RNA: SAM riboswitch aptamer (S box leader)
RNA sequence: CUCUUAUCCAGAGCGGUGGAGGGGCUGGCCCUGUGAAACCGCGGCAACCUCAAACGAAAUGUGUUUGAAAGGUGCCAAUUCCUGCAGAGCGGAUGCUUUGGCAGAUAAGAG
Number, nucleotide and partner (000 for none) at each position: 001c111002u110003c109004u108005u107006a106007u105008c104009c000010a000011g000012a000013g042014c041015g040016g039017u038018g000019g000020a000021g031022g030023g029024g000025c084026u000027g082028g081029c023030c022031c021032u000033g000034u000035g000036a000037a000038a017039c016040c015041g014042c013043g076044g075045c074046a073047a000048c072049c071050u068051c067052a066053a065054a064055c063056g000057a000058a000059a000060u000061g000062u000063g055064u054065u053066u052067g051068a050069a000070a000071g049072g048073u046074g045075c044076c043077a000078a000079u000080u103081c028082c027083u000084g025085c100086a099087g098088a097089g096090c095091g000092g000093a000094u000095g090096c089097u088098u087099u086100g085101g000102c000103a080104g008105a007106u006107a005108a004109g003110a002111g001